[Rfam]
RNA: Small nucleolar RNA SNORA3/SNORA45 family
RNA sequence: AGCGAGGCUAGAGUCACGCCUGGGUACUGCCCAUUGUCCUGGUGUGCUAGAGUGCUCGCAGAGUGAAUGUCUUUGUUUAUUCAUUGGCUGUAGUCUAAUGUGGCCCAGUCAAUCACCGACUCAGAUACAUUG
Numbered sequence: 001a002g003c004g005a006g007g008c009u010a011g012a013g014u015c016a017c018g019c020c021u022g023g024g025u026a027c028u029g030c031c032c033a034u035u036g037u038c039c040u041g042g043u044g045u046g047c048u049a050g051a052g053u054g055c056u057c058g059c060a061g062a063g064u065g066a067a068u069g070u071c072u073u074u075g076u077u078u079a080u081u082c083a084u085u086g087g088c089u090g091u092a093g094u095c096u097a098a099u100g101u102g103g104c105c106c107a108g109u110c111a112a113u114c115a116c117c118g119a120c121u122c123a124g125a126u127a128c129a130u131u132g
Stems, first nucleotide, its partner, number of pairs: 002059005007053003012048002015046006023038004071124002075120003083113005089107002094102001